Rfam assigns this 85-nucleotide RNA from Rubellimicrobium roseum to the family "chrB-a RNA". Rfam classes the family as a cis-regulatory element. Lineage of the source: Bacteria > Pseudomonadota > Alphaproteobacteria > Roseobacteraceae > Rubellimicrobium. The family's consensus secondary structure is taken from published work.

RNA sequence: GCCAUGGGGCCUGCGCCGCCCCACGAGGCGACAGCCGAAGCGCGCGUUUCCACCCACAUGACCCAAGACGGGAGGGACGCACAUG
Numbered sequence: 001g002c003c004a005u006g007g008g009g010c011c012u013g014c015g016c017c018g019c020c021c022c023a024c025g026a027g028g029c030g031a032c033a034g035c036c037g038a039a040g041c042g043c044g045c046g047u048u049u050c051c052a053c054c055c056a057c058a059u060g061a062c063c064c065a066a067g068a069c070g071g072g073a074g075g076g077a078c079g080c081a082c083a084u085g
Stems, first nucleotide, its partner, number of pairs: 005023006044080006